RNA sequence: GUUGCAGGUUUGAGGCCAUAGCAGAAGUGCUUAAAGCAUGACCUGUCAGAUUGCAACAAAUCUGUGAAUUCUGUU
Numbered sequence: 001g002u003u004g005c006a007g008g009u010u011u012g013a014g015g016c017c018a019u020a021g022c023a024g025a026a027g028u029g030c031u032u033a034a035a036g037c038a039u040g041a042c043c044u045g046u047c048a049g050a051u052u053g054c055a056a057c058a059a060a061u062c063u064g065u066g067a068a069u070u071c072u073g074u075u
Base pairs, nucleotide, nucleotide: 014043015042017040020075021074022073023072024071025070026069027039028038029037047064048063049062050061051060052059

Shown here is a 75-nucleotide RNA from Alligator sinensis, a member of the family "Mammalian CPEB3 ribozyme". NCBI's taxonomy places the organism under Eukaryota, Bilateria, Teleostomi, Alligatorinae, Alligator. The base pairs follow the family's consensus structure, which is taken from published work.